[Rfam]
RNA sequence: UUAUACACUGAGUGGCCAGACUGUUAUGGUCUCUGAACGCAUAAUAAUCUGGCCACUCAGUGUGUGU
Numbered sequence: 001u002u003a004u005a006c007a008c009u010g011a012g013u014g015g016c017c018a019g020a021c022u023g024u025u026a027u028g029g030u031c032u033c034u035g036a037a038c039g040c041a042u043a044a045u046a047a048u049c050u051g052g053c054c055a056c057u058c059a060g061u062g063u064g065u066g067u
Stems, first nucleotide, its partner, number of pairs: 004064014019049002022046007
The record is a 67-nucleotide sequence from Pipistrellus kuhlii, which matches "mir-9256 microRNA precursor family" in Rfam. Pairs were carried over by alignment from the consensus structure, which was predicted with RNAalifold. NCBI's taxonomy places the organism under Eukaryota, Deuterostomia, Tetrapoda, Chiroptera, Pipistrellus.